[Rfam]
RNA sequence: CAGAAUACAUGAUGAUCUCAUCUCAACUUGAACUCUCUCACUGAUUACUUGAUGAGAAAAGAUUUGAUAUUCUG
Numbered sequence: 001c002a003g004a005a006u007a008c009a010u011g012a013u014g015a016u017c018u019c020a021u022c023u024c025a026a027c028u029u030g031a032a033c034u035c036u037c038u039c040a041c042u043g044a045u046u047a048c049u050u051g052a053u054g055a056g057a058a059a060a061g062a063u064u065u066g067a068u069a070u071u072c073u074g
Base pairs, nucleotide, nucleotide: 001074002073003072004071005070006069007068
RNA: Small nucleolar RNA SNORD81
Organism: Heterocephalus glaber